[Rfam]
RNA: Archaeal large subunit ribosomal RNA, nucleotides 27 to 615
RNA sequence: UGGAUGGCUCGGCUCGGGCGCCGAGGAAGGCCGUGGCAAGCUGCGAUAAGCCCGGGGUAGGCGCACGCAGCCGUUGAACCCGGGAUCGCCGAAUGGGACCUCCUGCCACGGGUGAAGAGCCCGUGGCGUCCGGGAAACCAUUCCCUCCCUCCUCGUGGGGGAGGAGUGGGAGUACCGGACGGGAACCCCCCGAACGGAAACAUCUUAGUAGGGGGAGGAGGAGAAACCACCACGGGAUCCCCUGAGUAGGGGCGACCGAAAGGGGGAGAGCCCAAACCAAUCCUCCACGGGAUAACCGUGGAGGGAUGAGGGGUUGACGGGUCCCCGGCUAGGGGCCUUUGAGCCCCGAGAGGGCCUAUCCACGGUAGCCGAAGUGGCCUGGAACGGCCCGCCGUAGAGGGUGAAAGCCCCGUAGGCUAAACCGUGGAGGCCCUCGCCGCGGGACCAGAGUACCACGGCUUGGUUUUGCCGUGGGAAGCCGGGAGGCACCGGCUUCCAAGGCUAAACACGUCCCGAGACCGAUAGCGUACUAAGUACCGUGAGGGAAAGCUGAAAAGUACCCUGGAAAGGGGGUGAAAAGAGCCUGAAA
Numbered sequence: 001u002g003g004a005u006g007g008c009u010c011g012g013c014u015c016g017g018g019c020g021c022c023g024a025g026g027a028a029g030g031c032c033g034u035g036g037c038a039a040g041c042u043g044c045g046a047u048a049a050g051c052c053c054g055g056g057g058u059a060g061g062c063g064c065a066c067g068c069a070g071c072c073g074u075u076g077a078a079c080c081c082g083g084g085a086u087c088g089c090c091g092a093a094u095g096g097g098a099c100c101u102c103c104u105g106c107c108a109c110g111g112g113u114g115a116a117g118a119g120c121c122c123g124u125g126g127c128g129u130c131c132g133g134g135a136a137a138c139c140a141u142u143c144c145c146u147c148c149c150u151c152c153u154c155g156u157g158g159g160g161g162a163g164g165a166g167u168g169g170g171a172g173u174a175c176c177g178g179a180c181g182g183g184a185a186c187c188c189c190c191c192g193a194a195c196g197g198a199a200a201c202a203u204c205u206u207a208g209u210a211g212g213g214g215g216a217g218g219a220g221g222a223g224a225a226a227c228c229a230c231c232a233c234g235g236g237a238u239c240c241c242c243u244g245a246g247u248a249g250g251g252g253c254g255a256c257c258g259a260a261a262g263g264g265g266g267a268g269a270g271c272c273c274a275a276a277c278c279a280a281u282c283c284u285c286c287a288c289g290g291g292a293u294a295a296c297c298g299u300g301g302a303g304g305g306a307u308g309a310g311g312g313g314u315u316g317a318c319g320g321g322u323c324c325c326c327g328g329c330u331a332g333g334g335g336c337c338u339u340u341g342a343g344c345c346c347c348g349a350g351a352g353g354g355c356c357u358a359u360c361c362a363c364g365g366u367a368g369c370c371g372a373a374g375u376g377g378c379c380u381g382g383a384a385c386g387g388c389c390c391g392c393c394g395u396a397g398a399g400g401g402u403g404a405a406a407g408c409c410c411c412g413u414a415g416g417c418u419a420a421a422c423c424g425u426g427g428a429g430g431c432c433c434u435c436g437c438c439g440c441g442g443g444a445c446c447a448g449a450g451u452a453c454c455a456c457g458g459c460u461u462g463g464u465u466u467u468g469c470c471g472u473g474g475g476a477a478g479c480c481g482g483g484a485g486g487c488a489c490c491g492g493c494u495u496c497c498a499a500g501g502c503u504a505a506a507c508a509c510g511u512c513c514c515g516a517g518a519c520c521g522a523u524a525g526c527g528u529a530c531u532a533a534g535u536a537c538c539g540u541g542a543g544g545g546a547a548a549g550c551u552g553a554a555a556a557g558u559a560c561c562c563u564g565g566a567a568a569g570g571g572g573g574u575g576a577a578a579a580g581a582g583c584c585u586g587a588a589a
Stems, first nucleotide, its partner, number of pairs: 006584001007550002011520002013517006019510002029090003032045003051084006060072003095104003129179005186217001187215005197204002227235002239266005249257002269503004277311002287299004324441001326439002352433004368417003374390001376389004393397001399411003453474007481497005537544002